The family of this 89-nucleotide sequence from Gymnodraco acuticeps is "Vault RNA".

[Rfam]
RNA sequence: GCGCUGGUUUAGCUCAGUGGUUACUUCGAACGCUCACAUGUUCUCUGUCUCCACGCGGGAUCGAACCACGGGCGCUGUCCAGUGUUUUC
Number, nucleotide and partner (000 for none) at each position: 001g000002c084003g083004c082005u081006g080007g079008u000009u000010u000011a000012g073013c072014u071015c070016a000017g069018u068019g067020g066021u000022u000023a000024c000025u065026u064027c063028g062029a061030a000031c000032g000033c000034u000035c000036a000037c000038a000039u000040g000041u000042u000043c000044u000045c000046u000047g000048u000049c000050u000051c000052c000053a000054c000055g000056c000057g000058g000059g000060a000061u029062c028063g027064a026065a025066c020067c019068a018069c017070g015071g014072g013073c012074g000075c000076u000077g000078u000079c007080c006081a005082g004083u003084g002085u000086u000087u000088u000089c000
Rfam's curators write: This family of RNAs are found as part of the enigmatic vault ribonucleoprotein complex. The complex consists of a major vault protein (MVP), two minor vault proteins (VPARP and TEP1), and several small untranslated RNA molecules. It has been suggested that the vault complex is involved in drug resistance.
The family's consensus secondary structure is taken from published work.
The family's RNA type in Rfam is non-coding RNA gene.
The source organism's lineage runs through Eukaryota, Bilateria, Euteleostomi, Neopterygii and Gymnodraco.